[Rfam]
RNA: mir-252 microRNA precursor family
Organism: Panicum hallii
RNA sequence: AGCCGGCACUAAGCAUUAGUGCCGGCUGGUAAUACCAGCCGGCACUAAGCAUACCAGCCGGCACUAAUGCUUAGUGCCGGCU
Numbered sequence: 001a002g003c004c005g006g007c008a009c010u011a012a013g014c015a016u017u018a019g020u021g022c023c024g025g026c027u028g029g030u031a032a033u034a035c036c037a038g039c040c041g042g043c044a045c046u047a048a049g050c051a052u053a054c055c056a057g058c059c060g061g062c063a064c065u066a067a068u069g070c071u072u073a074g075u076g077c078c079g080g081c082u
Base pairs, nucleotide, nucleotide: 001082002081003080004079005078006077007076010073011072012071013070014069015068016067017066018065019064024059026057027056028055029054030053031052